[Rfam]
RNA sequence: UGGAUUUUCAGGCCAAAGUCCGUCUUCUUCCAAAGGCGGACACGGGGGACCCAAUUAUUCCGUCGUUUCAUCACGGCGGACGGGGCGAACGACCAGCGGGCAACCGCCGGUCAAGGUGACCUUCCAGCACCAAGCCCGUCAGCUAACCUCGUCGGCAAUGGAAGGGUGAUCC
Numbered sequence: 001u002g003g004a005u006u007u008u009c010a011g012g013c014c015a016a017a018g019u020c021c022g023u024c025u026u027c028u029u030c031c032a033a034a035g036g037c038g039g040a041c042a043c044g045g046g047g048g049a050c051c052c053a054a055u056u057a058u059u060c061c062g063u064c065g066u067u068u069c070a071u072c073a074c075g076g077c078g079g080a081c082g083g084g085g086c087g088a089a090c091g092a093c094c095a096g097c098g099g100g101c102a103a104c105c106g107c108c109g110g111u112c113a114a115g116g117u118g119a120c121c122u123u124c125c126a127g128c129a130c131c132a133a134g135c136c137c138g139u140c141a142g143c144u145a146a147c148c149u150c151g152u153c154g155g156c157a158a159u160g161g162a163a164g165g166g167u168g169a170u171c172c
Stems, first nucleotide, its partner, number of pairs: 012156003018041009042152006052082001083137003091112004115131004
Shown here is a 172-nucleotide sequence from an Opitutaceae bacterium, a member of the family "c-di-AMP riboswitch aptamer (ydaO/yuaA leader)".